Shown here is a 179-nucleotide RNA sequence from Staphylococcus saprophyticus, a member of the family "Lysine riboswitch aptamer". Rfam's curators put it in the seed alignment.
RNA sequence: AGGUUUUGAUGAGGCGCAUCAAUCAUUAGUAAAGAUUAGAAGAAUCUGACUGCUAGCAGCUAAUUUUGAAAGGGUGAGAUGCCGAAACGGUUAUAAUAGCAGCUUAUAACAUGUUGGACUUUAUGGUUAAGAGCUAAGAGUCUGUCAUUAUUUUAAGAUAAUGGAGUGCAUCACUUGUA
Numbered sequence: 001a002g003g004u005u006u007u008g009a010u011g012a013g014g015c016g017c018a019u020c021a022a023u024c025a026u027u028a029g030u031a032a033a034g035a036u037u038a039g040a041a042g043a044a045u046c047u048g049a050c051u052g053c054u055a056g057c058a059g060c061u062a063a064u065u066u067u068g069a070a071a072g073g074g075u076g077a078g079a080u081g082c083c084g085a086a087a088c089g090g091u092u093a094u095a096a097u098a099g100c101a102g103c104u105u106a107u108a109a110c111a112u113g114u115u116g117g118a119c120u121u122u123a124u125g126g127u128u129a130a131g132a133g134c135u136a137a138g139a140g141u142c143u144g145u146c147a148u149u150a151u152u153u154u155a156a157g158a159u160a161a162u163g164g165a166g167u168g169c170a171u172c173a174c175u176u177g178u179a
Stems, first nucleotide, its partner, number of pairs: 007173005016082005024074001032067008086115004090110007116143007124136004145164007